RNA sequence: CUCGGACCGACUUACAAACAACUGCAGACGGGAGUAAGAGAGAAAGAGAAGGUAGAGACGAAGGGCGAAAGCGUUACUAAGAGUCGACGAUAAAAAAGAGCUUAGUGACCCACCAAGAAGGCAAGAGAAAACCUUCAAGGAGCUAAAGAGAUUCUCACUUUAGACCCCUUCCAAUCUCGAACUGAAAAGA
Numbered sequence: 001c002u003c004g005g006a007c008c009g010a011c012u013u014a015c016a017a018a019c020a021a022c023u024g025c026a027g028a029c030g031g032g033a034g035u036a037a038g039a040g041a042g043a044a045a046g047a048g049a050a051g052g053u054a055g056a057g058a059c060g061a062a063g064g065g066c067g068a069a070a071g072c073g074u075u076a077c078u079a080a081g082a083g084u085c086g087a088c089g090a091u092a093a094a095a096a097a098g099a100g101c102u103u104a105g106u107g108a109c110c111c112a113c114c115a116a117g118a119a120g121g122c123a124a125g126a127g128a129a130a131a132c133c134u135u136c137a138a139g140g141a142g143c144u145a146a147a148g149a150g151a152u153u154c155u156c157a158c159u160u161u162a163g164a165c166c167c168c169u170u171c172c173a174a175u176c177u178c179g180a181a182c183u184g185a186a187a188a189g190a
Stems, first nucleotide, its partner, number of pairs: 001048003011038005060171005073109009117136005125156005143163006
IMES-1 RNA motif: a 190-nucleotide RNA sequence. The family's consensus secondary structure is taken from published work. The family's RNA type in Rfam is non-coding RNA gene.